[Rfam]
Nucleotides: 279
Base pairs, nucleotide, nucleotide: 001279002278003277004276007272008271009270012246013245014244015243016242017241018240021058022057023056024055025054033047034046035045036044037043067262068261069260070259071258077222078221079220080219087101088100089099090098091097102118103117104116105115106114107113119218120217121216122215123214124213125212139204141202
Number, partner (000 for none) and nucleotide at each position: 001279g002278c003277c004276g005000c006000g007272c008271g009270g010000a011000g012246u013245g014244u015243g016242c017241a018240a019000g020000u021058g022057c023056g024055a025054g026000g027000u028000u029000c030000c031000a032000a033047a034046g035045g036044c037043a038000c039000u040000g041000g042000u043037u044036g045035c046034c047033u048000g049000u050000u051000c052000u053000g054025c055024u056023c057022g058021c059000g060000g061000g062000a063000a064000g065000g066000u067262c068261u069260g070259a071258g072000g073000c074000a075000a076000g077222c078221g079220g080219c081000a082000u083000u084000u085000c086000a087101c088100c089099c090098u091097c092000g093000u094000g095000a096000u097091g098090g099089g100088g101087g102118a103117c104116c105115u106114c107113c108000u109000c110000a111000a112000a113107g114106g115105g116104g117103g118102u119218g120217c121216g122215g123214a124213c125212c126000a127000a128000c129000a130000g131000a132000a133000a134000u135000g136000g137000c138000g139204g140000u141202c142000g143000a144000g145000u146000g147000g148000g149000g150000c151000u152000a153000c154000g155000c156000a157000c158000c159000g160000c161000g162000u163000g164000a165000u166000g167000g168000g169000c170000c171000c172000u173000c174000u175000g176000g177000g178000g179000u180000c181000c182000u183000g184000a185000g186000g187000g188000u189000c190000a191000g192000g193000c194000c195000c196000c197000a198000u199000c200000c201000g202141g203000c204139c205000a206000u207000g208000a209000g210000a211000u212125g213124g214123u215122u216121c217120g218119c219080g220079c221078c222077g223000u224000g225000c226000g227000c228000g229000u230000a231000a232000a233000g234000c235000g236000a237000g238000a239000u240018u241017u242016g243015c244014a245013c246012a247000a248000u249000c250000a251000a252000a253000c254000u255000c256000a257000a258071u259070u260069c261068a262067g263000a264000c265000u266000a267000c268000u269000g270009c271008c272007g273000c274000c275000g276004c277003g278002g279001c
Shown here is a 279-nucleotide RNA from Fasciola gigantica, a member of the family "Nuclear RNase P". It scores 99 bits against the family's covariance model. Rfam describes the family as follows. Ribonuclease P (RNase P) is a ubiquitous endoribonuclease, found in archaea, bacteria and eukarya as well as chloroplasts and mitochondria. By type it is a ribozyme.